[Rfam]
RNA: mir-320 microRNA precursor family
Organism: Saimiri boliviensis
RNA sequence: CCUCCAUGGGGCCUUCCCUUCCUAGUUCUUCCCAGAGUUGGGAGAAGCUGGGUUGACGGAGUGAAAAGAAAAACCU
Numbered sequence: 001c002c003u004c005c006a007u008g009g010g011g012c013c014u015u016c017c018c019u020u021c022c023u024a025g026u027u028c029u030u031c032c033c034a035g036a037g038u039u040g041g042g043a044g045a046a047g048c049u050g051g052g053u054u055g056a057c058g059g060a061g062u063g064a065a066a067a068g069a070a071a072a073a074c075c076u
Base pairs, nucleotide, nucleotide: 014059015058018055021052022051023050024049025048029044030043031042032041033040034039